[Rfam]
RNA: Gammaproteobacterial sRNA STnc100
RNA sequence: ACUGCAGGAAUAAGUUCGGCGUAAUUUAUUUCUGUGGUGAAUCCUUUCUAAGCGAAAGGGCGUUCCAGCCAACUGCUAUCUGCAGGUAUGCGCGCGACUUUGCUGGCUGGAGUAGAGUCACCGGGAGGCACCCGGCACCAUGACAACAACAAUACAGUUUCAAAUUCCUUGAGAGCCUGCCGUAAAAAGCAGGCCUUUUUUUAUGA
Dot-bracket structure: .............(((..............((.((((((....((((.(......))))).......(((..............)))..(....)((((.(((........))).)))).(((((.....)))))))))))))....))).........(((.........((.((((((........)))))).))......)))